[Rfam]
Nucleotides: 064
Stems, first nucleotide, its partner, number of pairs: 002063007011052009020042003023038006
Number, partner (000 for none) and nucleotide at each position: 001000a002063g003062a004061a005060u006059u007058a008057u009000a010000g011052g012051a013050c014049u015048u016047c017046a018045g019044u020042c021041c022040a023038u024037g025036a026035u027034u028033u029000g030000g031000a032000a033028a034027a035026a036025u037024u038023a039000c040022u041021g042020g043000a044019a045018u046017u047016g048015g049014a050013g051012u052011c053000a054000a055000a056000a057008a058007u059006a060005a061004u062003u063002u064000g
Rfam assigns this 64-nucleotide RNA from Pan troglodytes to the family "mir-6128 microRNA precursor family". Rfam links the family to the GO terms RISC complex and miRNA-mediated post-transcriptional gene silencing. The family's consensus secondary structure was predicted with RNAalifold. NCBI's taxonomy places the organism under Eukaryota, Eumetazoa, Deuterostomia, Hominidae, Pan.